[Rfam]
RNA sequence: AGGCUGCGAAAGCGUUUUUCGCCGUCUUUACCUCCCUGUUGGACUGGCCGGGCUUUUAGCCCGGCCUUUUUU
Numbered sequence: 001a002g003g004c005u006g007c008g009a010a011a012g013c014g015u016u017u018u019u020c021g022c023c024g025u026c027u028u029u030a031c032c033u034c035c036c037u038g039u040u041g042g043a044c045u046g047g048c049c050g051g052g053c054u055u056u057u058a059g060c061c062c063g064g065c066c067u068u069u070u071u072u
Stems, first nucleotide, its partner, number of pairs: 001027003046066008
RNA: Singlet oxygen resistance RNA X
Organism: Oceaniovalibus guishaninsula